[Rfam]
RNA sequence: GGGGUUCCGGUUCACGCCAAUCGUGGAAGAACGGCGACCCGGCGACC
Numbered sequence: 001g002g003g004g005u006u007c008c009g010g011u012u013c014a015c016g017c018c019a020a021u022c023g024u025g026g027a028a029g030a031a032c033g034g035c036g037a038c039c040c041g042g043c044g045a046c047c
Stems, first nucleotide, its partner, number of pairs: 003047003007042004015036004021030002

A member of the RNA family "L31-Actinobacteria ribosomal protein leader" from Actinoplanes rectilineatus, 47 nucleotides long.